[Rfam]
RNA sequence: UGGGCCCGGGUCGGGUGACGGCCGGAUUUUAUCUAACCCUAAUUGAGUAGGGCGUAGGCGCGGUGCUUUUGUCCUCUGCGCGCUGUUUUUCUCGCUGGUUUUCAGCGAGCGGAAAAGCCUCGGCCUACCGCCGUCCACCAUCCAGUUUAGACAGAAAAAAAAAAAAAAUGCCAGCGUCUGGCUCUCUCACCCGUCCCGGGAGCCUGCGGUGCUCGCCCGCCCAGCCCCCGCACCCGCCCGGAGGCCGCGGUCGGCCUGGGGCUUCUCCGGAGGUGCCCAUUGCCGCCGCGAAGAGUUGGGCUCUGUCAGCCGCGGGUUUCUUGGGGGCCAAGGGCGAGGCUCUAGACGCAGGGAGAGCAAUGGAGCGGGUCCUCGCGCGGUGCACUUCCCUGAGCUGUGGGACUUGCAUCCGGGACCGGGCUCAGACACAU
Numbered sequence: 001u002g003g004g005c006c007c008g009g010g011u012c013g014g015g016u017g018a019c020g021g022c023c024g025g026a027u028u029u030u031a032u033c034u035a036a037c038c039c040u041a042a043u044u045g046a047g048u049a050g051g052g053c054g055u056a057g058g059c060g061c062g063g064u065g066c067u068u069u070u071g072u073c074c075u076c077u078g079c080g081c082g083c084u085g086u087u088u089u090u091c092u093c094g095c096u097g098g099u100u101u102u103c104a105g106c107g108a109g110c111g112g113a114a115a116a117g118c119c120u121c122g123g124c125c126u127a128c129c130g131c132c133g134u135c136c137a138c139c140a141u142c143c144a145g146u147u148u149a150g151a152c153a154g155a156a157a158a159a160a161a162a163a164a165a166a167a168a169u170g171c172c173a174g175c176g177u178c179u180g181g182c183u184c185u186c187u188c189a190c191c192c193g194u195c196c197c198g199g200g201a202g203c204c205u206g207c208g209g210u211g212c213u214c215g216c217c218c219g220c221c222c223a224g225c226c227c228c229c230g231c232a233c234c235c236g237c238c239c240g241g242a243g244g245c246c247g248c249g250g251u252c253g254g255c256c257u258g259g260g261g262c263u264u265c266u267c268c269g270g271a272g273g274u275g276c277c278c279a280u281u282g283c284c285g286c287c288g289c290g291a292a293g294a295g296u297u298g299g300g301c302u303c304u305g306u307c308a309g310c311c312g313c314g315g316g317u318u319u320c321u322u323g324g325g326g327g328c329c330a331a332g333g334g335c336g337a338g339g340c341u342c343u344a345g346a347c348g349c350a351g352g353g354a355g356a357g358c359a360a361u362g363g364a365g366c367g368g369g370u371c372c373u374c375g376c377g378c379g380g381u382g383c384a385c386u387u388c389c390c391u392g393a394g395c396u397g398u399g400g401g402a403c404u405u406g407c408a409u410c411c412g413g414g415a416c417c418g419g420g421c422u423c424a425g426a427c428a429c430a431u
Stems, first nucleotide, its partner, number of pairs: 005200006012193007020183005065118005077111003081107005094175006100168003203352006215340003218336005224328007233316005246290005252285004258278003292304004363423004368417006380409005387402004
RNA: Vertebrate telomerase RNA
Organism: Molossus molossus